Notes:
The record is a 97-nucleotide RNA sequence from Weissella kandleri, which matches "Purine riboswitch aptamer" in Rfam. Its family is annotated with purine nucleobase biosynthetic process in the Gene Ontology. Taxonomically the source falls in Weissella (Bacteria, Bacillati, Lactobacillales, Lactobacillaceae). A search with the family's covariance model found it, with a score of 60 bits.
[Rfam]
Nucleotides: 097
Stems, first nucleotide, its partner, number of pairs: 018083008029049007058073004063068001
Number, partner (000 for none) and nucleotide at each position: 001000a002000a003000a004000a005000a006000u007000a008000a009000a010000u011000u012000g013000u014000g015000a016000a017000u018083g019082u020081u021080u022079a023078g024077u025076a026000u027000a028000a029049u030048c031047a032046u033045u034044g035043g036000a037000g038000a039000a040000u041000g042000g043035c044034u045033g046032a047031u048030g049029a050000g051000u052000u053000u054000c055000u056000a057000c058073c059072c060071g061070c062000a063068c064000c065000a066000a067000a068063g069000c070061g071060c072059g073058g074000a075000c076025u077024a078023c079022u080021a081020a082019a083018u084000g085000a086000u087000u088000u089000u090000u091000a092000a093000a094000c095000a096000c097000a